Notes:
The record is a 56-nucleotide sequence from Dactylosporangium siamense, which matches "msiK RNA" in Rfam. The family has 120 seed sequences and 1,374 matches in Rfam 15.1. A search with the family's covariance model found it, with a score of 47 bits. By type it is a cis-regulatory element.

RNA sequence: GCCCAGAGCUUCUACUCGGAUCGUCCGGCACGUUCCUGCCGGUGGAAGGUGGCACC
Number, nucleotide and partner (000 for none) at each position: 001g000002c000003c000004c000005a000006g000007a000008g000009c048010u047011u046012c045013u044014a043015c000016u000017c000018g000019g000020a000021u000022c000023g000024u000025c042026c041027g040028g039029c038030a037031c000032g000033u000034u000035c000036c000037u030038g029039c028040c027041g026042g025043u014044g013045g012046a011047a010048g009049g000050u000051g000052g000053c000054a000055c000056c000